[Rfam]
RNA: Y RNA
Organism: Leptonychotes weddellii
Nucleotides: 100
Stems, first nucleotide, its partner, number of pairs: 002096007010089001014085001016080005028062002031059002
Number, partner (000 for none) and nucleotide at each position: 001000g002096g003095c004094u005093g006092g007091u008090c009000u010089g011000a012000g013000u014085g015000c016080a017079g018078u019077g020076g021000u022000u023000u024000c025000a026000u027000u028062a029061u030000u031059a032058a033000u034000u035000g036000a037000u038000c039000a040000c041000a042000g043000c044000c045000a046000g047000u048000u049000a050000c051000a052000g053000a054000u055000u056000u057000c058032u059031u060000u061029g062028u063000u064000c065000c066000u067000u068000c069000u070000c071000u072000a073000c074000u075000c076020c077019c078018a079017c080016u081000g082000a083000u084000u085014c086000c087000c088000c089010u090008g091007a092006c093005u094004a095003g096002c097000a098000a099000a100000a